[Rfam]
RNA sequence: AAGCCACAUUCUGUGGCAGAUGAUCAAAACUGUCACACCAUUUGAGCUUGCUCUAGCAACAGAGUUUAGUCCCGUCCGAUGCUCUCUGCUCCACGAGACAAGCUGUUCUAUAGAUCAGACAGU
Dot-bracket structure: ........(((.(((...((((........)))).))).....)))...............((.((((.....(..((.(....(((........)))...).))..)..)))))).......
A member of the RNA family "Small nucleolar RNA SNORA28" from Phyllostomus discolor, 123 nucleotides long. The family's consensus secondary structure was predicted with RNAfold. ACA28 is a member of the H/ACA class of snoRNA that guide the sites of modification of uridines to pseudouridines. On this family, see Huttenhofer et al., EMBO J 2001: "RNomics: an experimental approach that identifies 201 candidates for novel, small, non-messenger RNAs in mouse". Clan: SNORA28 clan. By type it is an H/ACA-box small nucleolar RNA.